Annotation:
This 151-nucleotide RNA sequence from Bacillus sp. T33-2 belongs to the Rfam family "SAM riboswitch aptamer (S box leader)". A reference for the family is Grundy and Henkin (1998), "The S box regulon: a new global transcription termination control system for methionine and cysteine biosynthesis genes in gram-positive bacteria", Mol Microbiol. The match comes from Rfam's covariance-model search (72 bits).

RNA sequence: CUCUUAUCCCGAGCUGGUGGAGGGACAGGCCCUAUGAAACCCAGCAACCUGCCAACAUUGCAUAUGACUGCAGAUUCAACCGUGAUUCCUGGUCAUUGCCGAGGCAAAGGUGCUAACCUGACGCAAGGUGGAAGUCCUUGAACGAUAAGAG
Numbered sequence: 001c002u003c004u005u006a007u008c009c010c011g012a013g014c015u016g017g018u019g020g021a022g023g024g025a026c027a028g029g030c031c032c033u034a035u036g037a038a039a040c041c042c043a044g045c046a047a048c049c050u051g052c053c054a055a056c057a058u059u060g061c062a063u064a065u066g067a068c069u070g071c072a073g074a075u076u077c078a079a080c081c082g083u084g085a086u087u088c089c090u091g092g093u094c095a096u097u098g099c100c101g102a103g104g105c106a107a108a109g110g111u112g113c114u115a116a117c118c119u120g121a122c123g124c125a126a127g128g129u130g131g132a133a134g135u136c137c138u139u140g141a142a143c144g145a146u147a148a149g150a151g
Base pairs, nucleotide, nucleotide: 001151002150003149004148005147006146007145008144013042016041017040018039022032023031024030026123029119043114044113045112046111048110049109050106051105052104053103124140125139126138127137128136